About this RNA
The record is a 72-nucleotide sequence from Xiashengella succiniciproducens, which matches "tRNA" in Rfam.
[Rfam]
Nucleotides: 072
Base pairs, nucleotide, nucleotide: 001071002070003069004068005067006066007065010025011024012023013022027043028042029041030040031039048064049063050062051061052060
Number, partner (000 for none) and nucleotide at each position: 001071g002070g003069u004068c005067c006066c007065g008000u009000a010025g011024u012023u013022c014000a015000a016000u017000g018000g019000a020000u021000a022013g023012a024011a025010u026000a027043c028042u029041g030040g031039a032000u033000u034000c035000c036000g037000g038000u039031u040030c041029c042028a043027g044000c045000g046000a047000u048064a049063u050062g051061g052060g053000u054000u055000c056000g057000a058000c059000u060052c061051c062050c063049g064048u065007c066006g067005g068004g069003a070002c071001c072000a
Rfam's curators write: Transfer RNA (tRNA) molecules are approximately 80 nucleotides in length. Their secondary structure includes four short double-helical elements and three loops (D, anti-codon, and T loops). Further hydrogen bonds mediate the characteristic L-shaped molecular structure. tRNAs have two regions of fundamental functional importance: the anti-codon, which is responsible for specific mRNA codon recognition, and the 3' end, to which the tRNAs corresponding amino acid is attached (by aminoacyl-tRNA synthetases). tRNAs cope with the degeneracy of the genetic code in two manners: having more than one tRNA (with a specific anti-codon) for a particular amino acid; and 'wobble' base-pairing, i.e. permitting non-standard base-pairing at the 3rd anti-codon position.